Shown here is a 145-nucleotide RNA sequence from Bacillus sp. MRMR6, a member of the family "c-di-AMP riboswitch aptamer (ydaO/yuaA leader)".

RNA sequence: AAAUAGUUACGGCUUAAACUCGAAUUUUUGUUCGGGUACGGAGGAACCAAUUUUUUGGGGUUAAUUCUACAAAGUAGAAGGGAUGAAAGUACUCUUUCGCCAUCCUACCCGUCAGCUAACUUCGUCGGCUAGCGAAGGAGGUCAU
Numbered sequence: 001a002a003a004u005a006g007u008u009a010c011g012g013c014u015u016a017a018a019c020u021c022g023a024a025u026u027u028u029u030g031u032u033c034g035g036g037u038a039c040g041g042a043g044g045a046a047c048c049a050a051u052u053u054u055u056u057g058g059g060g061u062u063a064a065u066u067c068u069a070c071a072a073a074g075u076a077g078a079a080g081g082g083a084u085g086a087a088a089g090u091a092c093u094c095u096u097u098c099g100c101c102a103u104c105c106u107a108c109c110c111g112u113c114a115g116c117u118a119a120c121u122u123c124g125u126c127g128g129c130u131a132g133c134g135a136a137g138g139a140g141g142u143c144a145u
Base pairs, nucleotide, nucleotide: 011130012129013128014127018037019036020035021034022033023032024031038125039124040123041122042121043120048057049056058110059109060108066078067077068076069075081105082104083103084102

NCBI's taxonomy places the organism under Bacteria, Bacillati, Bacillota, Bacilli, Bacillus. Rfam's curators write: This family represents a conserved RNA structure found upstream of the ydaO and yuaA genes in Bacillus subtilis and related genes in other bacteria.